[Rfam]
RNA sequence: CAGUGGGACACCUCUCCCCAACGAGAGGCUUCUAUCUGGAAGGAUAGUCAUA
Numbered sequence: 001c002a003g004u005g006g007g008a009c010a011c012c013u014c015u016c017c018c019c020a021a022c023g024a025g026a027g028g029c030u031u032c033u034a035u036c037u038g039g040a041a042g043g044a045u046a047g048u049c050a051u052a
Stems, first nucleotide, its partner, number of pairs: 011028006032047006
Dot-bracket structure: ..........((((((......))))))...((((((....)))))).....
Source information
The family of this 52-nucleotide RNA sequence from Pseudolabrys sp. Root1462 is "serC leader". The organism belongs to Pseudolabrys, within Bacteria. This family is a putative regulatory RNA structure that is found upstream of the serC-serA operon in some alpha-proteobacteria. The final stem of the structure overlaps the ribosome binding site of the serC reading frame. It scores 73 bits against the family's covariance model. The family's RNA type in Rfam is cis-regulatory leader. The pairing is the family consensus, mapped onto this sequence. A reference for the family is Corbino et al. (2005), "Evidence for a second class of S-adenosylmethionine riboswitches and other regulatory RNA motifs in alpha-proteobacteria", Genome Biol.